c-di-GMP-I-GGC riboswitch aptamer: a 91-nucleotide RNA from Paenibacillus sp. PvR098. Taxonomically the source falls in Paenibacillus (Bacteria, Bacillota, Bacilli, Caryophanales). Clan: c-di-GMP_I riboswitch clan. A search with the family's covariance model found it, with a score of 68 bits.
RNA sequence: UACGAUAAUGGCAAACUUGCUGAAAGGCAAGGACGCAAAGCAAUGGGCCUAAGGUUAGUAUUCUAAUACUAUGGCUGCCAUGCCGCCGAUA
Numbered sequence: 001u002a003c004g005a006u007a008a009u010g011g012c013a014a015a016c017u018u019g020c021u022g023a024a025a026g027g028c029a030a031g032g033a034c035g036c037a038a039a040g041c042a043a044u045g046g047g048c049c050u051a052a053g054g055u056u057a058g059u060a061u062u063c064u065a066a067u068a069c070u071a072u073g074g075c076u077g078c079c080a081u082g083c084c085g086c087c088g089a090u091a
Stems, first nucleotide, its partner, number of pairs: 001091001003088002011036002016031006034077001040083003044080003047075003